[Rfam]
RNA sequence: GAAUUCCCACCGAGCAAGAAUUAGCCAUUCACUCGUAGCGAGUCUUGAAGGAUGCAAGGUAACUUGUAUCUUUAAGCGUAGACAGUUAGGUGACGGGCCGAAAGCCAAGCGGUUGAAGGAAUUGAGCUCCGAAAUGCCGAAUCAAGGAGGCUGAUGUGCUCGGGAGCACAGAAAGCAAUAUCUCUGCUAUCGUAAAGGCAAGAAAGCAGGGACUCCUUCGGAGUCGUAGACCU
Numbered sequence: 001g002a003a004u005u006c007c008c009a010c011c012g013a014g015c016a017a018g019a020a021u022u023a024g025c026c027a028u029u030c031a032c033u034c035g036u037a038g039c040g041a042g043u044c045u046u047g048a049a050g051g052a053u054g055c056a057a058g059g060u061a062a063c064u065u066g067u068a069u070c071u072u073u074a075a076g077c078g079u080a081g082a083c084a085g086u087u088a089g090g091u092g093a094c095g096g097g098c099c100g101a102a103a104g105c106c107a108a109g110c111g112g113u114u115g116a117a118g119g120a121a122u123u124g125a126g127c128u129c130c131g132a133a134a135u136g137c138c139g140a141a142u143c144a145a146g147g148a149g150g151c152u153g154a155u156g157u158g159c160u161c162g163g164g165a166g167c168a169c170a171g172a173a174a175g176c177a178a179u180a181u182c183u184c185u186g187c188u189a190u191c192g193u194a195a196a197g198g199c200a201a202g203a204a205a206g207c208a209g210g211g212a213c214u215c216c217u218u219c220g221g222a223g224u225c226g227u228a229g230a231c232c233u
Stems, first nucleotide, its partner, number of pairs: 011035004018030004022201001024199002038086002042083004046078002048073011124225001126224006144218006150176003155170004181212008190203002